RNA sequence: GAUCAAUGAUUAAAGUAACCAAAUUUGAGCAUCAGAAGACCUUCCAGUCUGCUUGUUGCAUGAGCUGUACAGUUUUGAGA
Numbered sequence: 001g002a003u004c005a006a007u008g009a010u011u012a013a014a015g016u017a018a019c020c021a022a023a024u025u026u027g028a029g030c031a032u033c034a035g036a037a038g039a040c041c042u043u044c045c046a047g048u049c050u051g052c053u054u055g056u057u058g059c060a061u062g063a064g065c066u067g068u069a070c071a072g073u074u075u076u077g078a079g080a
Stems, first nucleotide, its partner, number of pairs: 029059003033055001037050004